[Rfam]
RNA: Mason-Pfizer monkey virus packaging signal
RNA sequence: UGGCGCCCAAUGUGGGGCUCCUAGCACGAAGGGCUCAACGAGGGAGCCAUCCUGAGACAUGCACGUAAAGUGAAACUAAAAGUUUUGCGACCAACGCUAUGCGGGAGCCUGCCGCACCACUCGAGUCACGGUAAGUGGAUGGCGAUCCUUUCCCCUUUUUUCCAGCAUGGGUCAGGCACUAAGUAAUUUGUGUCAGGUUUAAGUAAAGCUUUUAAGACAAGAGGGACAAAGGCUAAAGAAAAAGAUUUAUUGCAGUAUUUUCAAUUUAUUCAUAAGGUUUGCCCUU
Numbered sequence: 001u002g003g004c005g006c007c008c009a010a011u012g013u014g015g016g017g018c019u020c021c022u023a024g025c026a027c028g029a030a031g032g033g034c035u036c037a038a039c040g041a042g043g044g045a046g047c048c049a050u051c052c053u054g055a056g057a058c059a060u061g062c063a064c065g066u067a068a069a070g071u072g073a074a075a076c077u078a079a080a081a082g083u084u085u086u087g088c089g090a091c092c093a094a095c096g097c098u099a100u101g102c103g104g105g106a107g108c109c110u111g112c113c114g115c116a117c118c119a120c121u122c123g124a125g126u127c128a129c130g131g132u133a134a135g136u137g138g139a140u141g142g143c144g145a146u147c148c149u150u151u152c153c154c155c156u157u158u159u160u161u162c163c164a165g166c167a168u169g170g171g172u173c174a175g176g177c178a179c180u181a182a183g184u185a186a187u188u189u190g191u192g193u194c195a196g197g198u199u200u201a202a203g204u205a206a207a208g209c210u211u212u213u214a215a216g217a218c219a220a221g222a223g224g225g226a227c228a229a230a231g232g233c234u235a236a237a238g239a240a241a242a243a244g245a246u247u248u249a250u251u252g253c254a255g256u257a258u259u260u261u262c263a264a265u266u267u268a269u270u271c272a273u274a275a276g277g278u279u280u281g282c283c284c285u286u
Base pairs, nucleotide, nucleotide: 006032007031012027013026014025033047034046035045036044087136088135090132091131096127097125098124100116101115102114103113104112144173145172147171148170149169181212182211183209184208221261222260223259224258226256227255230248231247232246234244274285276283277282
Dot-bracket structure: .....((....(((..........)))...))((((.......)))).......................................((.((....(((.(((((.......))))).......)).)...))..)).......((.(((...................))))).......((((.......................)).))........((((.((..(((.(.........).)))......)).))))............(.((....)).).